[Rfam]
RNA sequence: AUUUAAUAUUAAGCGCCAGAACUAAAGUUGCUAUUAAAAUCAAGGUUUUAGGGUAAGAGCUAAAAUUAAUUUUUAGAAGUUCGCCUCAUAAAAUCUUGAUCUUAAUAUAGAUUAAUAACAAUUACUUUAGUUGACGAGGAUGGGGAGUAUCGAAAUUUUCGGCGGGUGCCCCACGGUAUCGCACUACCGUAAAACAUUGGCAAAACUAAAAAGUGAUUUUUAGAACAAAUCCAAUGCGGUGUUAAAA
Dot-bracket structure: ...................((((((((.................................................................................................))))))))........(((((....((((.....))))......)))))(((((......))))).....(((((......(((((((....)))))))........)))))...........
glmS glucosamine-6-phosphate activated ribozyme aptamer: a 247-nucleotide RNA sequence from Clostridium cavendishii.
Pairs were carried over by alignment from the consensus structure, which is taken from published work.
It is annotated as a riboswitch.
It scores 103 bits against the family's covariance model.
Rfam describes the family as follows. This entry contains a glucosamine-6-phosphate activated ribozyme that is found in the mRNA for GlmS. GlmS is an enzyme that uses fructose-6-phosphate and glutamine to generate glucosamine-6-phosphate. The ribozyme catalyses self cleavage of the glmS mRNA that is thought to regulate GlmS activity.